[Rfam]
Nucleotides: 117
Base pairs, nucleotide, nucleotide: 003079004078005077006076009067010066011065014062015061016060017059018058019057027053028052029051030050031049032048034046096117098116099115100114101113
Number, partner (000 for none) and nucleotide at each position: 001000c002000u003079g004078c005077g006076u007000a008000g009067c010066g011065c012000c013000u014062c015061u016060u017059u018058c019057a020000u021000u022000c023000u024000u025000a026000c027053u028052a029051a030050u031049c032048u033000u034046u035000c036000g037000c038000c039000u040000a041000u042000u043000a044000c045000u046034a047000c048032a049031g050030a051029u052028u053027a054000c055000c056000g057019u058018g059017g060016a061015a062014g063000u064000a065011g066010c067009g068000u069000a070000u071000a072000c073000g074000a075000u076006g077005c078004g079003c080000c081000u082000u083000c084000a085000c086000u087000a088000a089000u090000g091000u092000c093000u094000a095000a096117c097000c098116u099115c100114u101113u102000u103000c104000a105000g106000c107000u108000c109000u110000u111000u112000c113101a114100g115099g116098a117096g
Rfam assigns this 117-nucleotide RNA sequence from Thraustotheca clavata to the family "U5 spliceosomal RNA". Rfam classes the family as a spliceosomal small nuclear RNA. It scores 48 bits against the family's covariance model.